This 64-nucleotide RNA sequence belongs to the Rfam family "Pestivirus 3' UTR SLI".
RNA sequence: UGUGUUUUUGGGUCGUAACGCUGACUUACCGUAUGGUGACGAUGCUUGAUCCAAUAGCACCACC
Number, nucleotide and partner (000 for none) at each position: 001u000002g060003u059004g058005u057006u056007u000008u054009u053010g052011g051012g050013u049014c000015g000016u000017a000018a000019c000020g000021c000022u042023g000024a000025c000026u039027u038028a037029c036030c035031g000032u000033a000034u000035g030036g029037u028038g027039a026040c000041g000042a022043u000044g000045c000046u000047u000048g000049a013050u012051c011052c010053a009054a008055u000056a006057g005058c004059a003060c002061c000062a000063c000064c000
It is one of the family's seed sequences. The literature on the family includes a 1993 paper in Nucleic Acids Res by Deng and Brock, "5' and 3' untranslated regions of pestivirus genome: primary and secondary structure analyses". The family's RNA type in Rfam is cis-regulatory element. The pairing is the family consensus, mapped onto this sequence.